The family of this 112-nucleotide RNA from Halarsenatibacter silvermanii is "SAM riboswitch aptamer (S box leader)".
Rfam 15.1 lists 9,625 matches to the family in 4,158 species.
The match comes from Rfam's covariance-model search (86 bits).
The organism belongs to Halarsenatibacter, within Bacteria.
RNA sequence: UGCUUAUCGAGAGUGGUGGAGGGACUGGCCCUUUGAAGCCCGGCAACCGGCAGAGCCUCGCAAACUCUGUUUGGUGCCAAAUCCUGCAGGAGCAUAUCCUGAAAGAUAAGCG
Dot-bracket structure: ((((((((....(.(((...(((.[.[[)))......))))((((.((.((((((.........))))))..))))))...(]].](((((.....)))))..)))))))))
Numbered sequence: 001u002g003c004u005u006a007u008c009g010a011g012a013g014u015g016g017u018g019g020a021g022g023g024a025c026u027g028g029c030c031c032u033u034u035g036a037a038g039c040c041c042g043g044c045a046a047c048c049g050g051c052a053g054a055g056c057c058u059c060g061c062a063a064a065c066u067c068u069g070u071u072u073g074g075u076g077c078c079a080a081a082u083c084c085u086g087c088a089g090g091a092g093c094a095u096a097u098c099c100u101g102a103a104a105g106a107u108a109a110g111c112g
Stems, first nucleotide, its partner, number of pairs: 001112008013041001015040003021031003025086001027084002042078004047074002050070006082104001087101005